The record is a 109-nucleotide RNA from Actinidia chinensis, which matches "MIR390 microRNA precursor family" in Rfam. Its family is annotated with miRNA-mediated post-transcriptional gene silencing and RISC complex in the Gene Ontology. The match comes from Rfam's covariance-model search (96 bits). Taxonomically the source falls in Actinidia chinensis (Eukaryota, Euphyllophyta, Actinidiaceae, Actinidia). Pairs were carried over by alignment from the consensus structure, which was predicted with WAR. A reference for the family is Gustafson et al. (2005), "ASRP: the Arabidopsis Small RNA Project Database", Nucleic Acids Res.
[Rfam]
RNA sequence: UUGGAGGAUCUGUAAAGCUCAGGAGGGAUAGCGCCAUGGACGACGACAUGGGUGGUGUAUGGUGGUUUGUUAGUGGCGCUAUCUAUCCUGAGUUUCACGGAUUCUUCUU
Numbered sequence: 001u002u003g004g005a006g007g008a009u010c011u012g013u014a015a016a017g018c019u020c021a022g023g024a025g026g027g028a029u030a031g032c033g034c035c036a037u038g039g040a041c042g043a044c045g046a047c048a049u050g051g052g053u054g055g056u057g058u059a060u061g062g063u064g065g066u067u068u069g070u071u072a073g074u075g076g077c078g079c080u081a082u083c084u085a086u087c088c089u090g091a092g093u094u095u096c097a098c099g100g101a102u103u104c105u106u107c108u109u
Stems, first nucleotide, its partner, number of pairs: 010100001016094009026084010